[Rfam]
RNA: tRNA
RNA sequence: GCUACUUUGGUGGAAAUGGUAGACACGACACUCUUAAGAUGUGUUAUCGCAAGAUAUGAAGGUUCAAAUCCUUUAAGUAGUA
Dot-bracket structure: (((((((..(((...........))).((((.........)))).............(((((.......)))))))))))).